[Rfam]
RNA sequence: CAGCAAGAAAAAUGAGGGACUUUCAGGGGCAGCUGUGUUUUCUGACUCAGUCAUAAUGCCCCUAAAAAUCCUUAU
Numbered sequence: 001c002a003g004c005a006a007g008a009a010a011a012a013u014g015a016g017g018g019a020c021u022u023u024c025a026g027g028g029g030c031a032g033c034u035g036u037g038u039u040u041u042c043u044g045a046c047u048c049a050g051u052c053a054u055a056a057u058g059c060c061c062c063u064a065a066a067a068a069u070c071c072u073u074a075u
Stems, first nucleotide, its partner, number of pairs: 015073005021067003025063007034055004
A member of the RNA family "mir-365 microRNA precursor family" from Eschrichtius robustus, 75 nucleotides long. The organism belongs to Eschrichtius, within Eukaryota. It scores 88 bits against the family's covariance model. The literature on the family includes a 2005 paper in Nature by Xie et al., "Systematic discovery of regulatory motifs in human promoters and 3' UTRs by comparison of several mammals". Its family is annotated with RISC complex and miRNA-mediated post-transcriptional gene silencing in the Gene Ontology.